[Rfam]
The family of this 173-nucleotide sequence from Paenibacillus sp. KS1 is "M-box riboswitch aptamer (ykoK leader)". The match comes from Rfam's covariance-model search (152 bits). M-box riboswitch, also know as ykoK leader is described as a metaloregulatory RNA that sense divalent metals and function as a genetic control element of genes related to divalent metal transport in bacteria. It was first reported upstream of the B.subtilis ykoK gene and genes with related functions in other bacteria. The source organism's lineage runs through Bacteria, Bacillati, Bacillota, Bacilli and Paenibacillus.

RNA sequence: AUAUGUCCUCGUUAGGUGAGGCUCCUAUACAAAUACAGGCCACUGCCCGGAAACAUCGAGAGAUGCCAAUGGGUAGAACAGGGAUUGCCGGAUUAAGGCUUUUCAUAAUGUGGCUAAGAAGCGGGAAGCUUCUUUACGUUGUAUAGUGCCAAAACUGUACCAGGGGGAAAGAA
Number, nucleotide and partner (000 for none) at each position: 001a000002u000003a000004u000005g000006u168007c167008c166009u165010c164011g160012u159013u096014a000015g156016g155017u154018g000019a000020g150021g149022c148023u000024c000025c146026u145027a144028u143029a142030c141031a140032a139033a000034u000035a000036c000037a000038g000039g114040c113041c112042a111043c110044u000045g074046c073047c072048c071049g070050g000051a000052a000053a000054c065055a064056u063057c062058g000059a000060g000061a000062g057063a056064u055065g054066c000067c000068a000069a000070u049071g048072g047073g046074u045075a000076g000077a000078a000079c000080a000081g000082g104083g103084a102085u000086u000087g099088c098089c097090g000091g000092a000093u000094u000095a000096a013097g089098g088099c087100u000101u000102u084103u083104c082105a000106u000107a000108a000109u000110g043111u042112g041113g040114c039115u000116a134117a133118g132119a131120a130121g129122c000123g000124g000125g000126a000127a000128g000129c121130u120131u119132c118133u117134u116135u000136a000137c000138g000139u032140u031141g030142u029143a028144u027145a026146g025147u000148g022149c021150c020151a000152a000153a000154a017155c016156u015157g000158u000159a012160c011161c000162a000163g000164g010165g009166g008167g007168a006169a000170a000171g000172a000173a000